[Rfam]
RNA sequence: GGAGGAAGGCCCUCCGAAGCCGACUUGCAGGAGUAGGCUUUAAACAACCCUAAGCGGCAUGGAUCAAAAGUCCUUGUCGUGAGCGUUAGGGAAAAGGCUGCAUUUAGCAGUCAUG
Numbered sequence: 001g002g003a004g005g006a007a008g009g010c011c012c013u014c015c016g017a018a019g020c021c022g023a024c025u026u027g028c029a030g031g032a033g034u035a036g037g038c039u040u041u042a043a044a045c046a047a048c049c050c051u052a053a054g055c056g057g058c059a060u061g062g063a064u065c066a067a068a069a070g071u072c073c074u075u076g077u078c079g080u081g082a083g084c085g086u087u088a089g090g091g092a093a094a095a096g097g098c099u100g101c102a103u104u105u106a107g108c109a110g111u112c113a114u115g
Base pairs, nucleotide, nucleotide: 001015002014003013004012005011016041017040018039019038020037021036023034024033025032026031045115046114048091049090050089051088052087053086054080055079057077058076059075061073062072063071064070096112097111098110099109100108101107
RNA: Group II catalytic intron D1-D4-2
Organism: Aquicella lusitana